About this RNA: This 71-nucleotide sequence from Culex quinquefasciatus belongs to the Rfam family "mir-2943 microRNA precursor family". Rfam links the family to the GO terms miRNA-mediated post-transcriptional gene silencing and RISC complex. Rfam 15.1 lists 9 matches to the family in 5 species. NCBI's taxonomy places the organism under Eukaryota, Aparaglossata, Culicomorpha, Culex, Culex pipiens complex.

[Rfam]
RNA sequence: GAUGUUAAGUAGGCAUUUGCAGGCAAAACGUUGCUUAUAAUUUGGUUGACUGCUCUUUCCUACUUUACAUU
Numbered sequence: 001g002a003u004g005u006u007a008a009g010u011a012g013g014c015a016u017u018u019g020c021a022g023g024c025a026a027a028a029c030g031u032u033g034c035u036u037a038u039a040a041u042u043u044g045g046u047u048g049a050c051u052g053c054u055c056u057u058u059c060c061u062a063c064u065u066u067a068c069a070u071u
Stems, first nucleotide, its partner, number of pairs: 001071005007065007019053004024048003